Source information: Shown here is a 93-nucleotide sequence from Flexistipes sinusarabici, a member of the family "Selenocysteine transfer RNA". The base pairs follow the family's consensus structure, which is taken from published work. Its Rfam clan is "tRNA clan".
RNA sequence: GGGAGUGGUUGGGCAGCUGGUGCGCCCCGCGGCCUUCAAAGCCGACUGUCCCGCCUGUUGGGCGGGAGGUAGGUUCGAUUCCUACACACUCCC
Numbered sequence: 001g002g003g004a005g006u007g008g009u010u011g012g013g014c015a016g017c018u019g020g021u022g023c024g025c026c027c028c029g030c031g032g033c034c035u036u037c038a039a040a041g042c043c044g045a046c047u048g049u050c051c052c053g054c055c056u057g058u059u060g061g062g063c064g065g066g067a068g069g070u071a072g073g074u075u076c077g078a079u080u081c082c083u084a085c086a087c088a089c090u091c092c093c
Stems, first nucleotide, its partner, number of pairs: 001093007008085001011027004016023002029046001030044004049067005070084004

Lineage of the source: Bacteria > Deferribacterales > Flexistipitaceae > Flexistipes > Flexistipes sinusarabici.